Rfam assigns this 79-nucleotide sequence from Hermetia illucens to the family "drz-agam-1 ribozyme". Taxonomically the source falls in Hermetia (Eukaryota, Ecdysozoa, Insecta, Neoptera). On this family, see Webb et al., Science 2009: "Widespread occurrence of self-cleaving ribozymes". Gene Ontology term of the family: catalytic activity.
RNA sequence: UGCUAUCAAACUCUAUCUCCACCUCCACGUGGUGAUUGCUGGAAGGUCUUUCUUAAUGGAAAACUUCUGACGGAGAAGC
Numbered sequence: 001u002g003c004u005a006u007c008a009a010a011c012u013c014u015a016u017c018u019c020c021a022c023c024u025c026c027a028c029g030u031g032g033u034g035a036u037u038g039c040u041g042g043a044a045g046g047u048c049u050u051u052c053u054u055a056a057u058g059g060a061a062a063a064c065u066u067c068u069g070a071c072g073g074a075g076a077a078g079c
Base pairs, nucleotide, nucleotide: 013078014077016075018073019072021033022032023031044066045065046064047063049061050060051059053058